[Rfam]
RNA sequence: UUAUAAGCAAAAAAUCACUUUUUAGGUUCAUUGGAAAAUUAAUGUAUCUAGUCAAUAAUAUAGACUAGAUACAUUGUUUUUUCAAUGAACCUAAAAAGUGAUUUUUUGCUUAUAA
Number, nucleotide and partner (000 for none) at each position: 001u000002u114003a113004u112005a111006a110007g109008c000009a107010a106011a105012a104013a103014a000015u101016c100017a099018c098019u097020u096021u095022u094023u093024a092025g091026g000027u089028u088029c087030a086031u085032u084033g083034g082035a081036a080037a079038a078039u000040u076041a075042a074043u073044g072045u000046a000047u000048c000049u067050a066051g065052u064053c000054a000055a000056u000057a000058a000059u000060a000061u000062a000063g000064a052065c051066u050067a049068g000069a000070u000071a000072c044073a043074u042075u041076g040077u000078u038079u037080u036081u035082u034083c033084a032085a031086u030087g029088a028089a027090c000091c025092u024093a023094a022095a021096a020097a019098g018099u017100g016101a015102u000103u013104u012105u011106u010107u009108g000109c007110u006111u005112a004113u003114a002115a000